[Rfam]
RNA sequence: CUAUCCAGUCCAAGGACCAUAACAGAAGCAUUUCCAGUGCGGUCCAUGUUAGAUUCCUAGAAAUCUGUGAGUGUUGUU
Numbered sequence: 001c002u003a004u005c006c007a008g009u010c011c012a013a014g015g016a017c018c019a020u021a022a023c024a025g026a027a028g029c030a031u032u033u034c035c036a037g038u039g040c041g042g043u044c045c046a047u048g049u050u051a052g053a054u055u056c057c058u059a060g061a062a063a064u065c066u067g068u069g070a071g072u073g074u075u076g077u078u
Stems, first nucleotide, its partner, number of pairs: 014045005021078005027072001028040003050067006

Annotation
Rfam assigns this 78-nucleotide sequence from Microcaecilia unicolor to the family "Mammalian CPEB3 ribozyme". It scores 38 bits against the family's covariance model. Rfam links the family to the GO term RNA nuclease activity.